Rfam assigns this 179-nucleotide RNA from Planococcus halotolerans to the family "Bacillus sRNA ncr1575".
[Rfam]
RNA sequence: CACAUCAAUGUAAACGAGGUGACGGGUGGACGAUGAAAUAAAUUCCUUUUUCUGAGCAACUGAAGUUUUUUCAGCUUGAAAGAAAUAGGAUUCGUCUGCCCAAUUUUUAGUUAAUCAGCUUUAAUGCAGUUUAUUUGGGUUGCCGAAUUCUUCCGAAAAUCAAUCGGGGGAAUUUUUUU
Numbered sequence: 001c002a003c004a005u006c007a008a009u010g011u012a013a014a015c016g017a018g019g020u021g022a023c024g025g026g027u028g029g030a031c032g033a034u035g036a037a038a039u040a041a042a043u044u045c046c047u048u049u050u051u052c053u054g055a056g057c058a059a060c061u062g063a064a065g066u067u068u069u070u071u072c073a074g075c076u077u078g079a080a081a082g083a084a085a086u087a088g089g090a091u092u093c094g095u096c097u098g099c100c101c102a103a104u105u106u107u108u109a110g111u112u113a114a115u116c117a118g119c120u121u122u123a124a125u126g127c128a129g130u131u132u133a134u135u136u137g138g139g140u141u142g143c144c145g146a147a148u149u150c151u152u153c154c155g156a157a158a159a160u161c162a163a164u165c166g167g168g169g170g171a172a173u174u175u176u177u178u179u
Base pairs, nucleotide, nucleotide: 016108017107018106019105024101025100026099029096030095031094042092044090045089046088047087049085050084051083052082053081058076060074061073062072063071064070065069146174147173148172149171150170151169152168153167154166155165156164
NCBI's taxonomy places the organism under Bacteria, Bacillati, Bacillota, Caryophanaceae, Planococcus.
The family's RNA type in Rfam is small RNA.